[Rfam]
RNA sequence: CAGGCGUCCCGGAGGGCAACUUCCGGGAGUAUCACCGGGUGAAUUGCUGGGAAACCCUGAGAGCCCUUCAUACCACAACGCAGCCGGAAACGGCAGACGUGAAGGUUUGAAAAAUGGAGGGAUUGGGCAACCAGCAGCCGAGCCCCUGUGCCGAAAGGCUGGGGAAGGUCCAACGACUAGGGCAUACCACCUGAGGCCGUCACAACGGUACGGUGAUGAAGCCCGUAGGGCGCCUGGAGGCGCCCGAAGCACCCGGCUCCCGCUGCAAGGCAGCGGGAUGAAGAUAUAGUCUAGGCGCCGGCGAAAGCCGGCG
Numbered sequence: 001c002a003g004g005c006g007u008c009c010c011g012g013a014g015g016g017c018a019a020c021u022u023c024c025g026g027g028a029g030u031a032u033c034a035c036c037g038g039g040u041g042a043a044u045u046g047c048u049g050g051g052a053a054a055c056c057c058u059g060a061g062a063g064c065c066c067u068u069c070a071u072a073c074c075a076c077a078a079c080g081c082a083g084c085c086g087g088a089a090a091c092g093g094c095a096g097a098c099g100u101g102a103a104g105g106u107u108u109g110a111a112a113a114a115u116g117g118a119g120g121g122a123u124u125g126g127g128c129a130a131c132c133a134g135c136a137g138c139c140g141a142g143c144c145c146c147u148g149u150g151c152c153g154a155a156a157g158g159c160u161g162g163g164g165a166a167g168g169u170c171c172a173a174c175g176a177c178u179a180g181g182g183c184a185u186a187c188c189a190c191c192u193g194a195g196g197c198c199g200u201c202a203c204a205a206c207g208g209u210a211c212g213g214u215g216a217u218g219a220a221g222c223c224c225g226u227a228g229g230g231c232g233c234c235u236g237g238a239g240g241c242g243c244c245c246g247a248a249g250c251a252c253c254c255g256g257c258u259c260c261c262g263c264u265g266c267a268a269g270g271c272a273g274c275g276g277g278a279u280g281a282a283g284a285u286a287u288a289g290u291c292u293a294g295g296c297g298c299c300g301g302c303g304a305a306a307g308c309c310g311g312c313g
Base pairs, nucleotide, nucleotide: 014023015022035256036255037254038253040251041250045136046135047134048133049132050131055127056126057125059123137169138168143163144162145161173292175291176290177289178288179287258278259277260276261275262274263273264272265271266270298311299310300309301308302307
Rfam assigns this 313-nucleotide RNA sequence from Pelotomaculum thermopropionicum to the family "Group I catalytic intron". Taxonomically the source falls in Pelotomaculum thermopropionicum (Bacteria, Bacillati, Clostridia, Eubacteriales). The base pairs follow the family's consensus structure, which is taken from published work. Group I catalytic introns are large self-splicing ribozymes. They catalyse their own excision from mRNA, tRNA and rRNA precursors in a wide range of organisms. The core secondary structure consists of 9 paired regions (P1-P9). It scores 61 bits against the family's covariance model.